This 89-nucleotide sequence from Canis lupus belongs to the Rfam family "mir-8799 microRNA precursor family".
RNA sequence: GUGGGGGGUCGGAUCCUGGUCUGUGUCCCAGCGCCUAGUGCUCCCGGGCCUGCGCUGUUGGAUUCGCUUUCCUGGUUGGGCAGCCACUU
Dot-bracket structure: ((((...(((((..((.((...((((((((((((...(.(((....)))).))))))..)))..)))...)).))))).))..))))..